[Rfam]
RNA sequence: GUUGGUACAGUGUUAGUAGGACCAACACCUGUUAAUAUUAUAGGAAGAAACUUUUUAACACAGAUUGGCUGUACUCUAAAUUUUCCAUUAAGUCCUAUUAAAACUGUACCAGU
Numbered sequence: 001g002u003u004g005g006u007a008c009a010g011u012g013u014u015a016g017u018a019g020g021a022c023c024a025a026c027a028c029c030u031g032u033u034a035a036u037a038u039u040a041u042a043g044g045a046a047g048a049a050a051c052u053u054u055u056u057a058a059c060a061c062a063g064a065u066u067g068g069c070u071g072u073a074c075u076c077u078a079a080a081u082u083u084u085c086c087a088u089u090a091a092g093u094c095c096u097a098u099u100a101a102a103a104c105u106g107u108a109c110c111a112g113u
Base pairs, nucleotide, nucleotide: 004110005109006108007107008106009105010104011103013101014100015099016098017097018096019095020094021093022092031059032058033057034056035055037053064089066087067086068085